[Rfam]
RNA sequence: UUGCGCUGCCCUCCUUGGGCGUUUCCUCCCUAGACUGCGGCCUGCCCUCCGGGGUGGGCCGCUUUUUCGGGAGCA
Numbered sequence: 001u002u003g004c005g006c007u008g009c010c011c012u013c014c015u016u017g018g019g020c021g022u023u024u025c026c027u028c029c030c031u032a033g034a035c036u037g038c039g040g041c042c043u044g045c046c047c048u049c050c051g052g053g054g055u056g057g058g059c060c061g062c063u064u065u066u067u068c069g070g071g072a073g074c075a
Base pairs, nucleotide, nucleotide: 008020009019010018011017039060040059041058042057043056044055045054046053047052
Shown here is a 75-nucleotide RNA from Enterovirga rhinocerotis, a member of the family "Makes More Granules Regulator RNA (mmgR)". Taxonomically the source falls in Enterovirga (Bacteria, Pseudomonadati, Pseudomonadota, Hyphomicrobiales). Rfam classes the family as a small RNA. It scores 58 bits against the family's covariance model. Rfam's curators write: SuhB later renamed mmgR (makes more granules regulator) was a putative non-coding RNA found multiple times in the Agrobacterium tumefaciens genome and related alpha-proteobacteria. Its family is annotated with protein binding, response to nitrogen compound and DNA-templated transcription, termination in the Gene Ontology. Clan: suhB sRNA clan.